[Rfam]
This 75-nucleotide RNA sequence from Cellulomonas fimi belongs to the Rfam family "c-di-GMP-I-GGC riboswitch aptamer". The organism belongs to Cellulomonas fimi, within Bacteria. A search with the family's covariance model found it, with a score of 67 bits. Gene Ontology term of the family: cyclic-di-GMP binding.
RNA sequence: AGCGACAACGGCAAACCCGCCGCAAGGUGGGGACGCAAAGCCACGGGACCCACGAGGUCAGCCGAGCUACCGAAC
Numbered sequence: 001a002g003c004g005a006c007a008a009c010g011g012c013a014a015a016c017c018c019g020c021c022g023c024a025a026g027g028u029g030g031g032g033a034c035g036c037a038a039a040g041c042c043a044c045g046g047g048a049c050c051c052a053c054g055a056g057g058u059c060a061g062c063c064g065a066g067c068u069a070c071c072g073a074a075c
Base pairs, nucleotide, nucleotide: 003072004071011036012035016031017030018029019028020027021026034061039068040067041066044064045063046062047059048058049057